[Rfam]
RNA sequence: GACCCGUGAGCUGAACUGUCGUCGUAUGGCGUGCGUUCCCGGAAGGGAUAGGCUGGCGGGUUUUUU
Numbered sequence: 001g002a003c004c005c006g007u008g009a010g011c012u013g014a015a016c017u018g019u020c021g022u023c024g025u026a027u028g029g030c031g032u033g034c035g036u037u038c039c040c041g042g043a044a045g046g047g048a049u050a051g052g053c054u055g056g057c058g059g060g061u062u063u064u065u066u
Base pairs, nucleotide, nucleotide: 001062002061003060004059005058006057007056009054010053011052012051017035018034019033020031021030022029023028037048038047039046040045
Dot-bracket structure: (((((((.((((....(((((((....)))).))).((((....))))..)))).)))))))....